[Rfam]
RNA sequence: UAAAAAAAAACCCCGCAGUAAAACCGCAGGGUCCCUCUAAACCAAAAGGCUAGAAGGAAAAGGGAGAGGAGAAACCGGAGGAAGAACUUAUGGGGAAACGUAAGUCUUCUCCGCGG
Numbered sequence: 001u002a003a004a005a006a007a008a009a010a011c012c013c014c015g016c017a018g019u020a021a022a023a024c025c026g027c028a029g030g031g032u033c034c035c036u037c038u039a040a041a042c043c044a045a046a047a048g049g050c051u052a053g054a055a056g057g058a059a060a061a062g063g064g065a066g067a068g069g070a071g072a073a074a075c076c077g078g079a080g081g082a083a084g085a086a087c088u089u090a091u092g093g094g095g096a097a098a099c100g101u102a103a104g105u106c107u108u109c110u111c112c113g114c115g116g
Base pairs, nucleotide, nucleotide: 011031012030013029015027016026018024019023032064033063034062036060044051076113077112078111079110081109082108083107084106086105087104088103089102090101
Source information
Rfam assigns this 116-nucleotide RNA from Bacillus sp. SJS to the family "ylbH leader". The pairing is the family consensus, mapped onto this sequence. Rfam's curators write: This family is a putative regulatory RNA structure that is found upstream of the ylbH gene in B. subtilis and related low GC Gram-positive bacteria. The literature on the family includes a 2004 paper in Proc Natl Acad Sci U S A by Barrick et al., "New RNA motifs suggest an expanded scope for riboswitches in bacterial genetic control". The match comes from Rfam's covariance-model search (102 bits). Gene Ontology term of the family: regulation of gene expression. The family's RNA type in Rfam is cis-regulatory leader. The organism belongs to Bacillus, within Bacteria.